[Rfam]
RNA: tRNA
Organism: Capsaspora owczarzaki
RNA sequence: GCACUCGUGGUAGAGUGGUUAAUGUAAAUUCUUACGUUUGACUCGAAAUCAAAUCCGAGUUUCGGGCACAGGUUCGAGUCCUGUCGAGUGCG
Numbered sequence: 001g002c003a004c005u006c007g008u009g010g011u012a013g014a015g016u017g018g019u020u021a022a023u024g025u026a027a028a029u030u031c032u033u034a035c036g037u038u039u040g041a042c043u044c045g046a047a048a049u050c051a052a053a054u055c056c057g058a059g060u061u062u063c064g065g066g067c068a069c070a071g072g073u074u075c076g077a078g079u080c081c082u083g084u085c086g087a088g089u090g091c092g
Base pairs, nucleotide, nucleotide: 001091002090003089004088005087006086007085010035011034012033013032037053038052039051040050041049068084069083070082071081072080